Background
Rfam assigns this 104-nucleotide RNA from Actinacidiphila glaucinigra to the family "SAM (S-adenosyl methionine) riboswitch aptamer". Lineage of the source: Bacteria > Actinomycetota > Actinomycetes > Kitasatosporales > Actinacidiphila. The match comes from Rfam's covariance-model search (63 bits). Its Rfam clan is "SAM clan".
[Rfam]
RNA sequence: GGUGGGUCAUCGGCCCCGGCCCGCUGACCGGCAACCCUCACAUCGCGGUGGGGUGCCCCGGGUGACGACCUGGUCCCGCCGGUGCGGCGGGGCAAGCGCGGUCU
Numbered sequence: 001g002g003u004g005g006g007u008c009a010u011c012g013g014c015c016c017c018g019g020c021c022c023g024c025u026g027a028c029c030g031g032c033a034a035c036c037c038u039c040a041c042a043u044c045g046c047g048g049u050g051g052g053g054u055g056c057c058c059c060g061g062g063u064g065a066c067g068a069c070c071u072g073g074u075c076c077c078g079c080c081g082g083u084g085c086g087g088c089g090g091g092g093c094a095a096g097c098g099c100g101g102u103c104u
Stems, first nucleotide, its partner, number of pairs: 002028002005025003012021002030057003035053003039048001073093009